The record is a 97-nucleotide sequence from Hevea brasiliensis, which matches "Small nucleolar RNA Z43" in Rfam. Rfam classes the family as a C/D-box small nucleolar RNA. It scores 90 bits against the family's covariance model.
[Rfam]
RNA sequence: GGAGGCAGUGACGAAUUCUAUCAAUGGUCUCGUUCGGCAUAAUGGCAUGUUUGCCUUGCUGACCAUUCUGAUAUAUCACCGCCCAUAUUCUGAUUCC
Numbered sequence: 001g002g003a004g005g006c007a008g009u010g011a012c013g014a015a016u017u018c019u020a021u022c023a024a025u026g027g028u029c030u031c032g033u034u035c036g037g038c039a040u041a042a043u044g045g046c047a048u049g050u051u052u053g054c055c056u057u058g059c060u061g062a063c064c065a066u067u068c069u070g071a072u073a074u075a076u077c078a079c080c081g082c083c084c085a086u087a088u089u090c091u092g093a094u095u096c097c
Stems, first nucleotide, its partner, number of pairs: 001097004047057001

Pairs were carried over by alignment from the consensus structure, which was predicted with PFOLD. Taxonomically the source falls in Hevea (Eukaryota, Tracheophyta, Euphorbiaceae, Micrandreae).